Shown here is a 287-nucleotide RNA from Lobosporangium transversale, a member of the family "Nuclear RNase P".
Taxonomically the source falls in Lobosporangium (Eukaryota, Opisthokonta, Mortierellomycotina, Mortierellomycetes).
The family's consensus secondary structure is taken from published work.
RNA sequence: GGUGGCUGAAUAGCGUUUGCUUGGAAACAAUACGGCUGUGACAAAGAAAUUUGAUCCAGCAAUAAAUCAUCUGCAAGCGGGUAAAGUCCGCGCAAGUGUAAAGUUCCCUUAGUGGGGGCGCCAGUCAGUUCAUUUUGCUGGCGAGAUUUUUGGCUACCAGCAAUAAUUCUCUGUUCUUUCGGGAUCAGAUUGAAAGCGGCCUCUGACACACAGCUUCUAUAAGUCCAAUACGCUGUAGGUUCGCCUUUAUGGGCGAGCUGAAACUCAAUGCGGAUUAUUGGCCUACC
Numbered sequence: 001g002g003u004g005g006c007u008g009a010a011u012a013g014c015g016u017u018u019g020c021u022u023g024g025a026a027a028c029a030a031u032a033c034g035g036c037u038g039u040g041a042c043a044a045a046g047a048a049a050u051u052u053g054a055u056c057c058a059g060c061a062a063u064a065a066a067u068c069a070u071c072u073g074c075a076a077g078c079g080g081g082u083a084a085a086g087u088c089c090g091c092g093c094a095a096g097u098g099u100a101a102a103g104u105u106c107c108c109u110u111a112g113u114g115g116g117g118g119c120g121c122c123a124g125u126c127a128g129u130u131c132a133u134u135u136u137g138c139u140g141g142c143g144a145g146a147u148u149u150u151u152g153g154c155u156a157c158c159a160g161c162a163a164u165a166a167u168u169c170u171c172u173g174u175u176c177u178u179u180c181g182g183g184a185u186c187a188g189a190u191u192g193a194a195a196g197c198g199g200c201c202u203c204u205g206a207c208a209c210a211c212a213g214c215u216u217c218u219a220u221a222a223g224u225c226c227a228a229u230a231c232g233c234u235g236u237a238g239g240u241u242c243g244c245c246u247u248u249a250u251g252g253g254c255g256a257g258c259u260g261a262a263a264c265u266c267a268a269u270g271c272g273g274a275u276u277a278u279u280g281g282c283c284u285a286c287c
Stems, first nucleotide, its partner, number of pairs: 001286001004283003010236003019078005035060004088273005096211004104118005119143006152201004168189003238259007